[Rfam]
RNA sequence: UGGUAGAUGCACCCUGAUAACUAGCUCCCCUGGUUGGCUAACACCCACUGGGGGUUUUUUUA
Numbered sequence: 001u002g003g004u005a006g007a008u009g010c011a012c013c014c015u016g017a018u019a020a021c022u023a024g025c026u027c028c029c030c031u032g033g034u035u036g037g038c039u040a041a042c043a044c045c046c047a048c049u050g051g052g053g054g055u056u057u058u059u060u061u062a
Base pairs, nucleotide, nucleotide: 002013003012004011027054028053029052030051031050032049033048034047036045037044
The record is a 62-nucleotide RNA sequence from Nostoc punctiforme, which matches "Nitrogen stress-induced RNA 1" in Rfam. The sequence is in the family's curated seed alignment. Rfam classes the family as a small RNA. The base pairs follow the family's consensus structure. Taxonomically the source falls in Nostoc punctiforme (Bacteria, Cyanophyceae, Nostocales, Nostoc).